[Rfam]
RNA sequence: UCGCUCAGGUCUCUCCUCACCCCACACGAAUUAACCUUUCGCCUUUUACUAAAGGUUACCGUGGGGAGGGACACUCCAAUGAGCCUACAAGCCAAUUUUUGUAAGGCCCAGCCUGUUUGGGUGG
Dot-bracket structure: ..((((..(((((((((((............((((((((...........))))))))...)))))))))))........)))).....................(((((.......)))))..
RNA: U5 spliceosomal RNA
Organism: Rhipicephalus sanguineus